RNA sequence: GAUGAAAAUUCUCCGGAAUCUCUGUACCGCCUUGAUGAUUCCCUUGAACCCUUUUCCAGCUGAUGACUGUAGGGUUUUGU
Numbered sequence: 001g002a003u004g005a006a007a008a009u010u011c012u013c014c015g016g017a018a019u020c021u022c023u024g025u026a027c028c029g030c031c032u033u034g035a036u037g038a039u040u041c042c043c044u045u046g047a048a049c050c051c052u053u054u055u056c057c058a059g060c061u062g063a064u065g066a067c068u069g070u071a072g073g074g075u076u077u078u079g080u
Base pairs, nucleotide, nucleotide: 002080003079004078005077

Small nucleolar RNA MBII-202: an 80-nucleotide RNA sequence from Crocodylus porosus. For this family Rfam cites "RNomics: an experimental approach that identifies 201 candidates for novel, small, non-messenger RNAs in mouse" (Huttenhofer et al., EMBO J, 2001). The base pairs follow the family's consensus structure, which was predicted with PFOLD. It is annotated as a C/D-box small nucleolar RNA. The family has 30 seed sequences and 745 matches in Rfam 15.1.